[Rfam]
A member of the RNA family "Small nucleolar RNA snoR77" from Triticum urartu, 136 nucleotides long.
The literature on the family includes a 2002 paper in Curr Biol by Marker et al., "Experimental RNomics: identification of 140 candidates for small non-messenger RNAs in the plant Arabidopsis thaliana".

RNA sequence: AGGCAGCCCCUAUGCCCCAUUACAAUGGCAAUGGAGGUGUUGCGUUGCUCGGAGAGUAAACCUUCUGCUCUUCAGAUUAGCUGAGGGGGAGCUCUGCUUCCCUCCUUGAAGCUUGUCUAGUAGUCUUAAGAACAUC
Numbered sequence: 001a002g003g004c005a006g007c008c009c010c011u012a013u014g015c016c017c018c019a020u021u022a023c024a025a026u027g028g029c030a031a032u033g034g035a036g037g038u039g040u041u042g043c044g045u046u047g048c049u050c051g052g053a054g055a056g057u058a059a060a061c062c063u064u065c066u067g068c069u070c071u072u073c074a075g076a077u078u079a080g081c082u083g084a085g086g087g088g089g090a091g092c093u094c095u096g097c098u099u100c101c102c103u104c105c106u107u108g109a110a111g112c113u114u115g116u117c118u119a120g121u122a123g124u125c126u127u128a129a130g131a132a133c134a135u136c
Stems, first nucleotide, its partner, number of pairs: 002041004007037002009034002013030004062130003067125001069123001074118004080112003085104007
Rfam 15.1 lists 649 matches to the family in 221 species.